The family of this 192-nucleotide RNA from Inhella proteolytica is "Manganese Mn2+ riboswitch aptamer (yybP-ykoY)". This RNA was originally discovered in E. coli during a large scale screen and was named SraF. The family was later found to exist upstream of related families of protein genes in many bacteria, including the the yybP and ykoK genes in B. subtilis.
[Rfam]
RNA sequence: CUUUCCGUCAUUGGGGAGUAGCCGCCCUGUCAGGUCCAACCGGCAGGGGCACGCGUCAACACACUGGGUUCGAUGAGCCCUGGCGCGUGCGGCAGGGGUUUGACACCCGUCUGGCAAGACCUUUGACCGGAUGCCUCCGCCGUGGGCCGGGAGGCGUCUGGUCACAAGGCAUCCGCCGGCCCCUUGGAGUUC
Numbered sequence: 001c002u003u004u005c006c007g008u009c010a011u012u013g014g015g016g017a018g019u020a021g022c023c024g025c026c027c028u029g030u031c032a033g034g035u036c037c038a039a040c041c042g043g044c045a046g047g048g049g050c051a052c053g054c055g056u057c058a059a060c061a062c063a064c065u066g067g068g069u070u071c072g073a074u075g076a077g078c079c080c081u082g083g084c085g086c087g088u089g090c091g092g093c094a095g096g097g098g099u100u101u102g103a104c105a106c107c108c109g110u111c112u113g114g115c116a117a118g119a120c121c122u123u124u125g126a127c128c129g130g131a132u133g134c135c136u137c138c139g140c141c142g143u144g145g146g147c148c149g150g151g152a153g154g155c156g157u158c159u160g161g162u163c164a165c166a167a168g169g170c171a172u173c174c175g176c177c178g179g180c181c182c183c184u185u186g187g188a189g190u191u192c
Base pairs, nucleotide, nucleotide: 026047027046028045029044030043031042049090050089051088052087053086054085055084056083057082058081066080067079068078069077070076091191092190093189094184095183096182097181098180099179100178
Dot-bracket structure: .........................((((((..........)))))).((((((((((.......(((((.....)))))))))))))))((((((((((.............................................................................)))))))....))).